[Rfam]
RNA sequence: UUGCGAAUAAUCUCCCUGUUCUGACUUUGUAAUAACCGGGCAGGCUAAACAUUCGCUAUAUUAAGACCAGGCGUGUGUCCCCAGACCUAGUUCUUUCCCUGGGUCUGGUCUUAUAAAUGCUGGUGAUAAAC
Numbered sequence: 001u002u003g004c005g006a007a008u009a010a011u012c013u014c015c016c017u018g019u020u021c022u023g024a025c026u027u028u029g030u031a032a033u034a035a036c037c038g039g040g041c042a043g044g045c046u047a048a049a050c051a052u053u054c055g056c057u058a059u060a061u062u063a064a065g066a067c068c069a070g071g072c073g074u075g076u077g078u079c080c081c082c083a084g085a086c087c088u089a090g091u092u093c094u095u096u097c098c099c100u101g102g103g104u105c106u107g108g109u110c111u112u113a114u115a116a117a118u119g120c121u122g123g124u125g126a127u128a129a130a131c
Stems, first nucleotide, its partner, number of pairs: 003056003016043006023037001026034001066124004071120002081108010
A member of the RNA family "Small nucleolar RNA SNORA72" from Cnephaeus nilssonii, 131 nucleotides long. The family's RNA type in Rfam is H/ACA-box small nucleolar RNA. Rfam links the family to the GO terms RNA processing and nucleolus. The match comes from Rfam's covariance-model search (138 bits). The organism belongs to Cnephaeus, within Eukaryota. U72 is a member of the H/ACA class of snoRNAs. The snoRNA gene is located in intron 4 of the ribosomal L30 protein gene in human, mouse and chicken.